[Rfam]
Nucleotides: 035
Stems, first nucleotide, its partner, number of pairs: 003020003010034003
Number, partner (000 for none) and nucleotide at each position: 001000a002000u003020g004019g005018a006000g007000g008000a009000c010034g011033c012032c013000g014000a015000a016000a017000a018005u019004c020003c021000u022000u023000a024000a025000u026000a027000g028000a029000g030000u031000a032012g033011g034010c035000a